[Rfam]
Shown here is a 101-nucleotide sequence from Albula goreensis, a member of the family "Z30 small nucleolar RNA". Taxonomically the source falls in Albula (Eukaryota, Actinopteri, Teleostei, Albuliformes). The family's RNA type in Rfam is C/D-box small nucleolar RNA. It scores 77 bits against the family's covariance model. The family's consensus secondary structure was predicted with PFOLD.
RNA sequence: CAGCACUGAUGAGCGGAAGUAUAGUCUGACCUGGUAUUGUUUCCCCCGUCAGGGGGCAACACUGACCAGGACAUGAUCGCUGUAAUCUUCUCUCUGAGCGG
Numbered sequence: 001c002a003g004c005a006c007u008g009a010u011g012a013g014c015g016g017a018a019g020u021a022u023a024g025u026c027u028g029a030c031c032u033g034g035u036a037u038u039g040u041u042u043c044c045c046c047c048g049u050c051a052g053g054g055g056g057c058a059a060c061a062c063u064g065a066c067c068a069g070g071a072c073a074u075g076a077u078c079g080c081u082g083u084a085a086u087c088u089u090c091u092c093u094c095u096g097a098g099c100g101g
Stems, first nucleotide, its partner, number of pairs: 001100001003099002039060003